[Rfam]
Source information
The family of this 133-nucleotide RNA sequence from Janibacter cremeus is "FMN riboswitch aptamer (RFN element)". The source organism's lineage runs through Bacteria, Bacillati, Actinomycetes, Intrasporangiaceae and Janibacter. The base pairs follow the family's consensus structure, which is taken from published work.
RNA sequence: ACGCGUGCUCCGGGGUCGGUGAAAAUCCGAGCCGGCGGUGACAGUCCGCGAACUCCUCGUCCUCACGGAGGGGAGCCGAGCUGGUGGAACUCCAGCACCGACGGUGAAAGUCCGGAUGGGAGGCAGCACGCGG
Numbered sequence: 001a002c003g004c005g006u007g008c009u010c011c012g013g014g015g016u017c018g019g020u021g022a023a024a025a026u027c028c029g030a031g032c033c034g035g036c037g038g039u040g041a042c043a044g045u046c047c048g049c050g051a052a053c054u055c056c057u058c059g060u061c062c063u064c065a066c067g068g069a070g071g072g073g074a075g076c077c078g079a080g081c082u083g084g085u086g087g088a089a090c091u092c093c094a095g096c097a098c099c100g101a102c103g104g105u106g107a108a109a110g111u112c113c114g115g116a117u118g119g120g121a122g123g124c125a126g127c128a129c130g131c132g133g
Stems, first nucleotide, its partner, number of pairs: 003131007010122001017029003031111002033100002035049004044098002053075002080096005102114003